This 57-nucleotide sequence from Tessaracoccus flavus belongs to the Rfam family "msiK RNA". The source organism's lineage runs through Bacteria, Actinomycetota, Propionibacteriales, Propionibacteriaceae and Tessaracoccus. A search with the family's covariance model found it, with a score of 53 bits. By type it is a cis-regulatory element.

RNA sequence: CCUAGGUUCCUAUCCACUAAGGAUCGUCGGGCACGUACCUGCCCGUGGAAAGGAAUG
Numbered sequence: 001c002c003u004a005g006g007u008u009c010c011u012a013u014c015c016a017c018u019a020a021g022g023a024u025c026g027u028c029g030g031g032c033a034c035g036u037a038c039c040u041g042c043c044c045g046u047g048g049a050a051a052g053g054a055a056u057g
Stems, first nucleotide, its partner, number of pairs: 010052002013049004028045006